[Rfam]
RNA sequence: CAAGCAUCAGUGAUGAUUUUCUUUGAUUCGUUAUCCUUGCACUAUGAUUGCCCGUGAAGAAAACUAUGGGGAAUUUGAAUCUGAGAUGCUA
Numbered sequence: 001c002a003a004g005c006a007u008c009a010g011u012g013a014u015g016a017u018u019u020u021c022u023u024u025g026a027u028u029c030g031u032u033a034u035c036c037u038u039g040c041a042c043u044a045u046g047a048u049u050g051c052c053c054g055u056g057a058a059g060a061a062a063a064c065u066a067u068g069g070g071g072a073a074u075u076u077g078a079a080u081c082u083g084a085g086a087u088g089c090u091a
Stems, first nucleotide, its partner, number of pairs: 003090006
Dot-bracket structure: ..((((((............................................................................)))))).
Shown here is a 91-nucleotide RNA from Rosa chinensis, a member of the family "Small nucleolar RNA snoR26". On this family, see Brown et al., RNA 2001: "Multiple snoRNA gene clusters from Arabidopsis". The family's consensus secondary structure was predicted with WAR. It is annotated as a C/D-box small nucleolar RNA. Rfam links the family to the GO terms RNA processing and nucleolus.